TPP riboswitch aptamer (THI element): a 97-nucleotide RNA from Lacticaseibacillus manihotivorans. It scores 65 bits against the family's covariance model.

[Rfam]
RNA sequence: UCCGUCACAAAGGGGAGCCAUUGGCUGAGAGUGGGGAAACCCAGACCCUUCGAACCUGAUCGUUAGUACGAGCGUAGGGAUUGUGAACGUCGCAAAU
Dot-bracket structure: .....(((((((((..(((...)))......((((....))))..)))).....((((..((......)..)..))))..)))))............

The organism belongs to Lacticaseibacillus manihotivorans, within Bacteria.